This 199-nucleotide RNA from Triticum aestivum belongs to the Rfam family "MIR1435 microRNA precursor family". The family has 3 seed sequences and 1,765 matches in Rfam 15.1.
RNA sequence: UAGGUUUGUCCUGAGUCAAACUUGCUUAAGUAUGACCAACUCUAUAGAAAAUGUGCAAAGAUCUACAACACCAAACACACAUAGUACGGAAAUAUAUUUCAUAAAGAAUCUAAUGAGACUAAUUUGGUGUUCCAAAUGUUCAUAUUUUUUUCCAUAGACUUGGUCAAACUUAAACAAGUUUGACUUAGGACAAACUUAA
Numbered sequence: 001u002a003g004g005u006u007u008g009u010c011c012u013g014a015g016u017c018a019a020a021c022u023u024g025c026u027u028a029a030g031u032a033u034g035a036c037c038a039a040c041u042c043u044a045u046a047g048a049a050a051a052u053g054u055g056c057a058a059a060g061a062u063c064u065a066c067a068a069c070a071c072c073a074a075a076c077a078c079a080c081a082u083a084g085u086a087c088g089g090a091a092a093u094a095u096a097u098u099u100c101a102u103a104a105a106g107a108a109u110c111u112a113a114u115g116a117g118a119c120u121a122a123u124u125u126g127g128u129g130u131u132c133c134a135a136a137u138g139u140u141c142a143u144a145u146u147u148u149u150u151u152c153c154a155u156a157g158a159c160u161u162g163g164u165c166a167a168a169c170u171u172a173a174a175c176a177a178g179u180u181u182g183a184c185u186u187a188g189g190a191c192a193a194a195c196u197u198a199a
Stems, first nucleotide, its partner, number of pairs: 005194005011188014026173001031168001033166003045154001047152005054144002058140002061137002064134001067131001071127005